[Rfam]
RNA sequence: GUCUGUGCAAGUGUUGAAUAGAAUGGUUACUUUGGAAUGGCUAUAUGGAUUAAAAAGACUGAAAACGUAU
Numbered sequence: 001g002u003c004u005g006u007g008c009a010a011g012u013g014u015u016g017a018a019u020a021g022a023a024u025g026g027u028u029a030c031u032u033u034g035g036a037a038u039g040g041c042u043a044u045a046u047g048g049a050u051u052a053a054a055a056a057g058a059c060u061g062a063a064a065a066c067g068u069a070u
Stems, first nucleotide, its partner, number of pairs: 001070002004067003010060003022051003027047001033043003
Dot-bracket structure: ((.(((...(((.........(((..(.....(((.....)))...).)))......)))....))).))
RNA: GAIT element